[Rfam]
Nucleotides: 075
Base pairs, nucleotide, nucleotide: 001074002073003072004071005070006069007068010028011027012026030046031045032044033043034042051067052066053065054064055063
Number, partner (000 for none) and nucleotide at each position: 001074g002073c003072u004071c005070c006069g007068g008000u009000g010028g011027u012026g013000u014000a015000g016000c017000c018000c019000g020000g021000c022000c023000a024000a025000u026012c027011a028010u029000u030046u031045c032044g033043g034042c035000c036000u037000u038000u039000c040000g041000a042034g043033c044032c045031g046030a047000a048000g049000a050000c051067u052066c053065g054064g055063g056000u057000u058000c059000a060000a061000a062000u063055c064054c065053c066052g067051a068007c069006c070005g071004g072003a073002g074001c075000a